[Rfam]
RNA sequence: UCAGAUAAAGCCAAACCCAUUGGAAAAUGGGGACGGAAAGCCACGGGUCCCGAGUCGUUGCGGAUAGCCGGGUUGCCGAGC
Numbered sequence: 001u002c003a004g005a006u007a008a009a010g011c012c013a014a015a016c017c018c019a020u021u022g023g024a025a026a027a028u029g030g031g032g033a034c035g036g037a038a039a040g041c042c043a044c045g046g047g048u049c050c051c052g053a054g055u056c057g058u059u060g061c062g063g064a065u066a067g068c069c070g071g072g073u074u075g076c077c078g079a080g081c
Base pairs, nucleotide, nucleotide: 004077011036012035016031017030018029019028020027021026034067039074040073041072042071044070045069046068047065048064049063
RNA: c-di-GMP-I-GGC riboswitch aptamer
Organism: Desulfococcus multivorans